[Rfam]
The record is a 223-nucleotide RNA from Paenibacillus solanacearum, which matches "c-di-AMP riboswitch aptamer (ydaO/yuaA leader)" in Rfam. Rfam describes the family as follows. This family represents a conserved RNA structure found upstream of the ydaO and yuaA genes in Bacillus subtilis and related genes in other bacteria. The source organism's lineage runs through Bacteria, Bacillati, Caryophanales, Paenibacillaceae and Paenibacillus. For this family Rfam cites "New RNA motifs suggest an expanded scope for riboswitches in bacterial genetic control" (Barrick et al., Proc Natl Acad Sci U S A, 2004).
RNA sequence: AGCAUUAUUUCGCUGAAUCCUUGAAUGGAAAAGGAACGGGGGAACCAACGAGGCGCUUUGCUGCUCCGGUACGAUCGGAACGGUAGGCAGCUUCAUGGGGUGAAUCUUGCAGCGCAGUUGACAAUUGUCCAGCUAUAAUUCGCUGAAUAAUUGCAACGCAAGUAGGGCGACUCUCUCGUCCGAAUCCGUCAGCUAACCUCGUAAGCGUAUAGGGAGAGGCAAC
Numbered sequence: 001a002g003c004a005u006u007a008u009u010u011c012g013c014u015g016a017a018u019c020c021u022u023g024a025a026u027g028g029a030a031a032a033g034g035a036a037c038g039g040g041g042g043a044a045c046c047a048a049c050g051a052g053g054c055g056c057u058u059u060g061c062u063g064c065u066c067c068g069g070u071a072c073g074a075u076c077g078g079a080a081c082g083g084u085a086g087g088c089a090g091c092u093u094c095a096u097g098g099g100g101u102g103a104a105u106c107u108u109g110c111a112g113c114g115c116a117g118u119u120g121a122c123a124a125u126u127g128u129c130c131a132g133c134u135a136u137a138a139u140u141c142g143c144u145g146a147a148u149a150a151u152u153g154c155a156a157c158g159c160a161a162g163u164a165g166g167g168c169g170a171c172u173c174u175c176u177c178g179u180c181c182g183a184a185u186c187c188g189u190c191a192g193c194u195a196a197c198c199u200c201g202u203a204a205g206c207g208u209a210u211a212g213g214g215a216g217a218g219g220c221a222a223c
Stems, first nucleotide, its partner, number of pairs: 011207004018035005036202006046097002098187003106162004165181004